[Rfam]
RNA sequence: GCCCCGCAUUUUGAAUUGGGUCGACGCCCAUGCCAACCUGCCUCCCGGGCAAGGUGGAACGCGAAAGCGAAUGUGGCUCUCAAGAGAGCAACCAAGCGGGUAGCG
Dot-bracket structure: .....(((((....(.(((((....)))))).((..((((((..[[.))).))).))............))))).((((......)))).........]].....
RNA: SAM-I/IV (S-adenosyl methionine) riboswitch aptamer